Rfam assigns this 287-nucleotide RNA from Candidatus Nitrosocosmicus agrestis to the family "Archaeal RNase P". The match comes from Rfam's covariance-model search (174 bits). Clan: RNaseP clan. About the family: Ribonuclease P (RNase P) is a ubiquitous endoribonuclease, found in archaea, bacteria and eukarya as well as chloroplasts and mitochondria.
RNA sequence: GUGAGUUAGCGAGCAAGUUACUUCAUAUUACGAAGAGGAAACUCCUCCCUCAAUACGGGUACCUGAAUUAGCGAUAAUUAGAAGGAGACUUCUGGCAACGAAAUAGAAAAGUAUUUGGCUGAGAUCUUUGGCUAUGAUGAUUUGUAAUCUGAGUGAUCUCAGGUUAAAUUGAAACUGUCGACCCAGGUAGAGAAAGGCCAAACAGAGUUAUAUUCCCGUAAUUAAACUCAGGUAGGCUGCUUAGCUGAAUCUUGCCUAAAACAAAAGGAGGGUUACUACUAAUACAC
Number, nucleotide and partner (000 for none) at each position: 001g287002u286003g285004a000005g283006u282007u281008a280009g279010c000011g276012a000013g255014c254015a253016a252017g251018u000019u000020a000021c035022u034023u033024c032025a000026u000027a000028u000029u000030a000031c000032g024033a023034a022035g021036a000037g000038g000039a000040a274041a273042c272043u000044c271045c270046u269047c268048c267049c192050u191051c190052a000053a000054u221055a000056c000057g000058g217059g216060u000061a188062c187063c186064u185065g184066a079067a078068u077069u076070a075071g000072c000073g000074a000075u070076a069077a068078u067079u066080a093081g092082a091083a090084g089085g000086a000087g000088a000089c084090u083091u082092c081093u080094g183095g182096c000097a000098a000099c180100g179101a178102a000103a000104u000105a000106g000107a000108a000109a000110a000111g000112u000113a000114u168115u167116u166117g164118g000119c162120u161121g160122a159123g158124a157125u000126c000127u000128u000129u000130g000131g000132c000133u000134a000135u000136g149137a148138u000139g000140a000141u000142u000143u000144g000145u000146a000147a000148u137149c136150u000151g000152a000153g000154u000155g000156a000157u124158c123159u122160c121161a120162g119163g000164u117165u000166a116167a115168a114169u000170u000171g000172a000173a000174a000175c000176u000177g000178u101179c100180g099181a000182c095183c094184c065185a064186g063187g062188u061189a000190g051191a050192g049193a000194a000195a000196g238197g237198c236199c235200a000201a000202a000203c000204a000205g229206a228207g227208u226209u225210a000211u000212a000213u000214u000215c000216c059217c058218g000219u000220a000221a054222u000223u000224a000225a209226a208227c207228u206229c205230a000231g000232g000233u000234a000235g199236g198237c197238u196239g000240c000241u000242u000243a000244g000245c000246u000247g000248a000249a000250u000251c017252u016253u015254g014255c013256c000257u000258a000259a000260a000261a000262c000263a000264a000265a000266a000267g048268g047269a046270g045271g044272g042273u041274u040275a000276c011277u000278a000279c009280u008281a007282a006283u005284a000285c003286a002287c001

Gene Ontology terms of the family: tRNA processing, ribonuclease P activity and multimeric ribonuclease P complex. It is annotated as a ribozyme.